The family of this 35-nucleotide sequence is "L19-Flavobacteria ribosomal protein leader". The family's consensus secondary structure is taken from published work.

RNA sequence: UAACCGCUGGCAGGACGUGCAGCCUGCGAAUGUUG
Numbered sequence: 001u002a003a004c005c006g007c008u009g010g011c012a013g014g015a016c017g018u019g020c021a022g023c024c025u026g027c028g029a030a031u032g033u034u035g
Base pairs, nucleotide, nucleotide: 001035002034003033004032008030010027011026012025013024
Rfam classes the family as a cis-regulatory leader.